[Rfam]
RNA sequence: GCUCAAGAGCGGACGGCUGUUUGGGUACCUGGCCCGCCGUCCCGGCAACCGCGCGGCCACCGCACGGUGCCCCAGGGGAAGAGCCGGCACGCACGCGUGCAAGAGGUGGAC
Number, nucleotide and partner (000 for none) at each position: 001g084002c083003u082004c081005a000006a000007g000008a000009g043010c000011g000012g041013a040014c039015g038016g037017c036018u000019g000020u000021u000022u000023g000024g034025g033026u000027a000028c000029c000030u000031g000032g000033c025034c024035c000036g017037c016038c015039g014040u013041c012042c000043c009044g071045g070046c069047a000048a000049c067050c066051g065052c000053g063054c062055g000056g000057c000058c000059a000060c000061c000062g054063c053064a000065c051066g050067g049068u000069g046070c045071c044072c000073c000074a000075g000076g000077g000078g000079a000080a000081g004082a003083g002084c001085c000086g000087g100088c099089a098090c097091g096092c000093a000094c000095g000096c091097g090098u089099g088100c087101a000102a000103g000104a000105g000106g000107u000108g000109g000110a000111c000

SAM (S-adenosyl methionine) riboswitch aptamer: a 111-nucleotide sequence. The match comes from Rfam's covariance-model search (68 bits). Gene Ontology terms of the family: S-adenosylmethionine metabolic process and regulation of gene expression.